[Rfam]
RNA: Small nucleolar RNA Z103
Organism: Citrus x clementina
RNA sequence: AUGGAAGUGAGGAUUAUUUCCCCAAAUGAUCGACACUGAUUAAACUAAGCGAUCUGUUUCUCUUUUCGAGAAUCCAAGCCAGAAAUCUGAUCCGU
Numbered sequence: 001a002u003g004g005a006a007g008u009g010a011g012g013a014u015u016a017u018u019u020c021c022c023c024a025a026a027u028g029a030u031c032g033a034c035a036c037u038g039a040u041u042a043a044a045c046u047a048a049g050c051g052a053u054c055u056g057u058u059u060c061u062c063u064u065u066u067c068g069a070g071a072a073u074c075c076a077a078g079c080c081a082g083a084a085a086u087c088u089g090a091u092c093c094g095u
Stems, first nucleotide, its partner, number of pairs: 001095005